[Rfam]
RNA: Makes More Granules Regulator RNA (mmgR)
Organism: Sphingomonas sp. HMWF008
RNA sequence: AGGGGGUGCCUUUCAGGCAUCCUCUCCUAAAACUUUCAAGGCCGAUCCUCCGGGGUCGGCCCUUUUUUUGUGCUUU
Numbered sequence: 001a002g003g004g005g006g007u008g009c010c011u012u013u014c015a016g017g018c019a020u021c022c023u024c025u026c027c028u029a030a031a032a033c034u035u036u037c038a039a040g041g042c043c044g045a046u047c048c049u050c051c052g053g054g055g056u057c058g059g060c061c062c063u064u065u066u067u068u069u070g071u072g073c074u075u076u
Base pairs, nucleotide, nucleotide: 008018009017010016011015040061041060042059043058044057045056046055047054048053